RNA: mir-15 microRNA precursor family
Organism: Hemibagrus wyckioides
RNA sequence: CCUGGCGGUGCCGUAGCAGCACAGAAUGGUUUGUGAGUUUUUUUAAAGAGGGUGCAGGCCGUGCUGUGCUGCGGCAGCAACGCCGGG
Numbered sequence: 001c002c003u004g005g006c007g008g009u010g011c012c013g014u015a016g017c018a019g020c021a022c023a024g025a026a027u028g029g030u031u032u033g034u035g036a037g038u039u040u041u042u043u044u045a046a047a048g049a050g051g052g053u054g055c056a057g058g059c060c061g062u063g064c065u066g067u068g069c070u071g072c073g074g075c076a077g078c079a080a081c082g083c084c085g086g087g
Stems, first nucleotide, its partner, number of pairs: 001087006013075002016072009026062010